[Rfam]
RNA sequence: UACCCAUCCAGAGCGGCCGAGAGAUCUGGCUCGUUGACGCCGCAGCAACCCCCUCCUCGGAGGACGGUGCUACUGCCAGCAACGAUGGAGA
Numbered sequence: 001u002a003c004c005c006a007u008c009c010a011g012a013g014c015g016g017c018c019g020a021g022a023g024a025u026c027u028g029g030c031u032c033g034u035u036g037a038c039g040c041c042g043c044a045g046c047a048a049c050c051c052c053c054u055c056c057u058c059g060g061a062g063g064a065c066g067g068u069g070c071u072a073c074u075g076c077c078a079g080c081a082a083c084g085a086u087g088g089a090g091a
Base pairs, nucleotide, nucleotide: 001091004088005087006086007085008084013043014042015041016040017039021032022031023030026079027078028077029076044071045070046069047068049067050066052063053062054061055060075083
Rfam assigns this 91-nucleotide RNA sequence from Neomicrococcus aestuarii to the family "SAM riboswitch aptamer (S box leader)".